[Rfam]
RNA sequence: AGACGGUUGAUUCGUCCCGGUGCAGGAAGCGCGCGGACAUAAGGAAACGGAACCAAGCGGGCAAUGCCCGGUCGGGAUGGCGAAGC
Numbered sequence: 001a002g003a004c005g006g007u008u009g010a011u012u013c014g015u016c017c018c019g020g021u022g023c024a025g026g027a028a029g030c031g032c033g034c035g036g037a038c039a040u041a042a043g044g045a046a047a048c049g050g051a052a053c054c055a056a057g058c059g060g061g062c063a064a065u066g067c068c069c070g071g072u073c074g075g076g077a078u079g080g081c082g083a084a085g086c
Base pairs, nucleotide, nucleotide: 002021004019005018006017053075054074056072058070059069060068
RNA: RAGATH-28 RNA
Organism: Enterocloster bolteae